Shown here is a 150-nucleotide RNA from Ectopseudomonas mendocina, a member of the family "PrrF RNA".
A reference for the family is Djapgne et al. (2018), "The Pseudomonas aeruginosa PrrF1 and PrrF2 small regulatory RNAs (sRNAs) promote 2-alkyl-4-quinolone production through redundant regulation of the antR mRNA", J Bacteriol.
It is one of the family's seed sequences.
It is annotated as a small RNA.
The base pairs follow the family's consensus structure, which is taken from published work.
From the family's description: PrrF RNA is a small RNA involved in iron homeostasis and is found exclusively in Pseudomonas species.
[Rfam]
RNA sequence: UUGACUAUGAAAUGAGAAUUGUUAUUAUUACCUCAACUGGUCGCGAGAUCAGCCGAUAAGCUAAAGAGACCAUUCAGUCGGACUCUUCAGAUUAUCUCCUCAUCAGGCUAAUCACGGUUAUUGACCCGGCUCUUGCCGGGUCUUUUUUUG
Numbered sequence: 001u002u003g004a005c006u007a008u009g010a011a012a013u014g015a016g017a018a019u020u021g022u023u024a025u026u027a028u029u030a031c032c033u034c035a036a037c038u039g040g041u042c043g044c045g046a047g048a049u050c051a052g053c054c055g056a057u058a059a060g061c062u063a064a065a066g067a068g069a070c071c072a073u074u075c076a077g078u079c080g081g082a083c084u085c086u087u088c089a090g091a092u093u094a095u096c097u098c099c100u101c102a103u104c105a106g107g108c109u110a111a112u113c114a115c116g117g118u119u120a121u122u123g124a125c126c127c128g129g130c131u132c133u134u135g136c137c138g139g140g141u142c143u144u145u146u147u148u149u150g
Stems, first nucleotide, its partner, number of pairs: 034055001037052006061090002065086004070080001098107003123142008